[Rfam]
RNA sequence: GGUCCUGAGCGCCAGCGUCAAGCCCCGGCUUGCUGGCCGGCAACCCUCCUCCGCGGUGGGGUGCCCCGGGUGUGACCAGGCCCGCGGCGAACCCGCCGUCGGCAAGUGCGGACC
Numbered sequence: 001g002g003u004c005c006u007g008a009g010c011g012c013c014a015g016c017g018u019c020a021a022g023c024c025c026c027g028g029c030u031u032g033c034u035g036g037c038c039g040g041c042a043a044c045c046c047u048c049c050u051c052c053g054c055g056g057u058g059g060g061g062u063g064c065c066c067c068g069g070g071u072g073u074g075a076c077c078a079g080g081c082c083c084g085c086g087g088c089g090a091a092c093c094c095g096c097c098g099u100c101g102g103c104a105a106g107u108g109c110g111g112a113c114c
Base pairs, nucleotide, nucleotide: 001077002076003075004074009038011037012036013035014034015033016032021030022029039065040064041063044061045060046059048056049055080103081102082101084099085098086097087096088095089094
Rfam assigns this 114-nucleotide sequence from Parafrankia sp. EAN1pec to the family "SAM (S-adenosyl methionine) riboswitch aptamer".
Rfam's curators put it in the seed alignment.
Pairs were carried over by alignment from the consensus structure, which is taken from published work.